[Rfam]
RNA sequence: AGUUGGUCUGGGGUUGUGGGUUAUUGUUAAAUUGUUUAACACUGUUUCCCCCCAUACCCAUGCUUGACUAACGUGGGGAAAU
Numbered sequence: 001a002g003u004u005g006g007u008c009u010g011g012g013g014u015u016g017u018g019g020g021u022u023a024u025u026g027u028u029a030a031a032u033u034g035u036u037u038a039a040c041a042c043u044g045u046u047u048c049c050c051c052c053c054a055u056a057c058c059c060a061u062g063c064u065u066g067a068c069u070a071a072c073g074u075g076g077g078g079a080a081a082u
Stems, first nucleotide, its partner, number of pairs: 002072007010065002013061002015056006025041003029037002
Shown here is an 82-nucleotide RNA from Mus musculus, a member of the family "Y RNA". The family's RNA type in Rfam is non-coding RNA gene. Rfam's curators put it in the seed alignment. Lineage of the source: Eukaryota > Opisthokonta > Metazoa > Craniata > Mus. For this family Rfam cites "Conserved features of Y RNAs: a comparison of experimentally derived secondary structures" (Teunissen et al., Nucleic Acids Res, 2000).